[Rfam]
RNA sequence: UGUAAGCGUUGAGCGUGCGCUGGCACAGCAGGGAGCGGACGCAGUCUUGUUUAUCAAAACGGAUAAUGCCGACCAUUUCGUCCUCUUCGAAGCGUUCCAACGCAUCACUCAGGCCGGAUUUCACCCCACGUGGCAAAUCGCACUGAGUAAUAUCCCCAUUGACGAUCACCGUCACAUUCUCACCCAAACGAGUG
Numbered sequence: 001u002g003u004a005a006g007c008g009u010u011g012a013g014c015g016u017g018c019g020c021u022g023g024c025a026c027a028g029c030a031g032g033g034a035g036c037g038g039a040c041g042c043a044g045u046c047u048u049g050u051u052u053a054u055c056a057a058a059a060c061g062g063a064u065a066a067u068g069c070c071g072a073c074c075a076u077u078u079c080g081u082c083c084u085c086u087u088c089g090a091a092g093c094g095u096u097c098c099a100a101c102g103c104a105u106c107a108c109u110c111a112g113g114c115c116g117g118a119u120u121u122c123a124c125c126c127c128a129c130g131u132g133g134c135a136a137a138u139c140g141c142a143c144u145g146a147g148u149a150a151u152a153u154c155c156c157c158a159u160u161g162a163c164g165a166u167c168a169c170c171g172u173c174a175c176a177u178u179c180u181c182a183c184c185c186a187a188a189c190g191a192g193u194g
Base pairs, nucleotide, nucleotide: 002054003053004052005051006050007049008048014041015040016039018037019036061078062077063076064075067072083112084111093102094101095100113193114192117189119188120187121186126133127132137166138165139164140163144158145157171183172182174180
RNA: Yersinia sRNA 251
Organism: Chania multitudinisentens